[Rfam]
RNA sequence: GACGCUAUGGUGUAGUGGCAGCACAUGGGAUUUUGAUAUAGCUCCAAAUUCCCAUAACCCAGGUUCGAACCCUGGUAGUGUCU
Numbered sequence: 001g002a003c004g005c006u007a008u009g010g011u012g013u014a015g016u017g018g019c020a021g022c023a024c025a026u027g028g029g030a031u032u033u034u035g036a037u038a039u040a041g042c043u044c045c046a047a048a049u050u051c052c053c054a055u056a057a058c059c060c061a062g063g064u065u066c067g068a069a070c071c072c073u074g075g076u077a078g079u080g081u082c083u
Stems, first nucleotide, its partner, number of pairs: 001082007010024004026054005059075005

Shown here is an 83-nucleotide sequence from Armillaria borealis, a member of the family "tRNA".
Transfer RNA (tRNA) molecules are approximately 80 nucleotides in length.
The source organism's lineage runs through Eukaryota, Dikarya, Agaricomycetes, Agaricales and Armillaria.